[Rfam]
Nucleotides: 115
Base pairs, nucleotide, nucleotide: 003039004038005037006036007035008034016031017030018029019028020027049075050074051073052072053071054070056068057067078110079109080108081107082106083105085103086102087101088100089099090098091097
Number, partner (000 for none) and nucleotide at each position: 001000c002000a003039u004038c005037c006036c007035u008034u009000u010000a011000a012000c013000a014000a015000a016031c017030a018029g019028u020027c021000c022000a023000g024000a025000g026000a027020g028019g029018c030017u031016g032000g033000c034008a035007a036006g037005g038004g039003a040000g041000g042000c043000g044000c045000c046000u047000a048000c049075g050074g051073c052072a053071u054070a055000a056068a057067g058000a059000c060000a061000c062000g063000a064000u065000c066000g067057u068056u069000c070054u071053a072052u073051g074050c075049c076000u077000g078110a079109a080108a081107g082106c083105c084000u085103c086102u087101u088100u089099u090098g091097u092000u093000a094000u095000a096000a097091a098090c099089a100088a101087a102086a103085g104000u105083g106082g107081c108080u109079u110078u111000u112000u113000u114000a115000a